Shown here is a 138-nucleotide RNA sequence from Echinops telfairi, a member of the family "Small nucleolar RNA SNORA47". A reference for the family is Huttenhofer et al. (2001), "RNomics: an experimental approach that identifies 201 candidates for novel, small, non-messenger RNAs in mouse", EMBO J. NCBI's taxonomy places the organism under Eukaryota, Opisthokonta, Metazoa, Sarcopterygii, Echinops. Its family is annotated with RNA processing and nucleolus in the Gene Ontology. The family's RNA type in Rfam is H/ACA-box small nucleolar RNA. The family's consensus secondary structure was predicted with WAR.
RNA sequence: UGGAGGACUGAGAAGGUGAGGCAGCUCUGUACCAUGCUGCCGUCCACUGGUUAAGGCCUCCGAAAGUGAAGGGUCGCCAGGGCAGAGGAUGCCCCUCUGCCACCUUCAGAGGGGCAGGGCUGUGCUUGCCGACAUUGU
Numbered sequence: 001u002g003g004a005g006g007a008c009u010g011a012g013a014a015g016g017u018g019a020g021g022c023a024g025c026u027c028u029g030u031a032c033c034a035u036g037c038u039g040c041c042g043u044c045c046a047c048u049g050g051u052u053a054a055g056g057c058c059u060c061c062g063a064a065a066g067u068g069a070a071g072g073g074u075c076g077c078c079a080g081g082g083c084a085g086a087g088g089a090u091g092c093c094c095c096u097c098u099g100c101c102a103c104c105u106u107c108a109g110a111g112g113g114g115c116a117g118g119g120c121u122g123u124g125c126u127u128g129c130c131g132a133c134a135u136u137g138u
Stems, first nucleotide, its partner, number of pairs: 002061005015048004020041006081130003086126002089123003097117005103112002